[Rfam]
RNA sequence: GGAACCGCGAGGGACCGUCCGGAGGAAGCCGGAGUGCAAAGCUAUGAGCCGACGAACAGAAAUGGCAUACAAGGCCCAGCUUCCGGGCAAGUCAGCACAACAUGACGAAGCCCCGGGUUCAGGAGGUAGGGUAAAUGCCGCGGUUGUGUAGCGACAGAUCACGUU
Numbered sequence: 001g002g003a004a005c006c007g008c009g010a011g012g013g014a015c016c017g018u019c020c021g022g023a024g025g026a027a028g029c030c031g032g033a034g035u036g037c038a039a040a041g042c043u044a045u046g047a048g049c050c051g052a053c054g055a056a057c058a059g060a061a062a063u064g065g066c067a068u069a070c071a072a073g074g075c076c077c078a079g080c081u082u083c084c085g086g087g088c089a090a091g092u093c094a095g096c097a098c099a100a101c102a103u104g105a106c107g108a109a110g111c112c113c114c115g116g117g118u119u120c121a122g123g124a125g126g127u128a129g130g131g132u133a134a135a136u137g138c139c140g141c142g143g144u145u146g147u148g149u150a151g152c153g154a155c156a157g158a159u160c161a162c163g164u165u
Stems, first nucleotide, its partner, number of pairs: 001016002005012002028165001030163002037157001041152006047145005063140006074132003079127006085113004091106004
Group II catalytic intron D1-D4-3: a 165-nucleotide RNA sequence from delta proteobacterium MLMS-1. Pairs were carried over by alignment from the consensus structure. NCBI's taxonomy places the organism under Bacteria, delta/epsilon subdivisions, Deltaproteobacteria. The family has 406 seed sequences and 4,274 matches in Rfam 15.1. Rfam links the family to the GO term Group II intron splicing.